[Rfam]
RNA: tRNA
Organism: Halosimplex carlsbadense
RNA sequence: GGGCCUGUAUCUCAGUCUGGUUAGAGAGAGCGGCUCAUAACCGCUUCGUCCCUGGUUCAAAUCCGGGCGGGCCCA
Numbered sequence: 001g002g003g004c005c006u007g008u009a010u011c012u013c014a015g016u017c018u019g020g021u022u023a024g025a026g027a028g029a030g031c032g033g034c035u036c037a038u039a040a041c042c043g044c045u046u047c048g049u050c051c052c053u054g055g056u057u058c059a060a061a062u063c064c065g066g067g068c069g070g071g072c073c074c075a
Stems, first nucleotide, its partner, number of pairs: 001074007010027004029045005051067005